[Rfam]
RNA sequence: UUUGCCUCUCGAAUAACUCAGUGGAUAGUGCUCGCUAUGCGCACUUUCUUCCAUAUGGUUCAGACGGAGGCGCAUAAUAAAUAAAUAUGAAUCAGUUUUGAGGUUAAGGGACUCUCUAAAUUGUUUGAUGUUUCAUUUUCUAGAUUGAUUCAUACAACU
Numbered sequence: 001u002u003u004g005c006c007u008c009u010c011g012a013a014u015a016a017c018u019c020a021g022u023g024g025a026u027a028g029u030g031c032u033c034g035c036u037a038u039g040c041g042c043a044c045u046u047u048c049u050u051c052c053a054u055a056u057g058g059u060u061c062a063g064a065c066g067g068a069g070g071c072g073c074a075u076a077a078u079a080a081a082u083a084a085a086u087a088u089g090a091a092u093c094a095g096u097u098u099u100g101a102g103g104u105u106a107a108g109g110g111a112c113u114c115u116c117u118a119a120a121u122u123g124u125u126u127g128a129u130g131u132u133u134c135a136u137u138u139u140c141u142a143g144a145u146u147g148a149u150u151c152a153u154a155c156a157a158c159u
Base pairs, nucleotide, nucleotide: 003072004071005070006069007068009067015060016059017058018057021054022053024051025050088152089151090150091149092148093147095121096120097119100116101115102114127146128145129144131142

Record summary: A member of the RNA family "Small nucleolar RNA snoR138" from Striga asiatica, 159 nucleotides long. The family's consensus secondary structure was predicted with mfold. NCBI's taxonomy places the organism under Eukaryota, Streptophyta, Lamiales, Buchnereae, Striga. A reference for the family is Chen and Wu (2009), "Mining small RNA sequencing data: a new approach to identify small nucleolar RNAs in Arabidopsis", Nucleic Acids Res. The family has 7 seed sequences and 308 matches in Rfam 15.1. Rfam links the family to the GO terms RNA processing and nucleolus.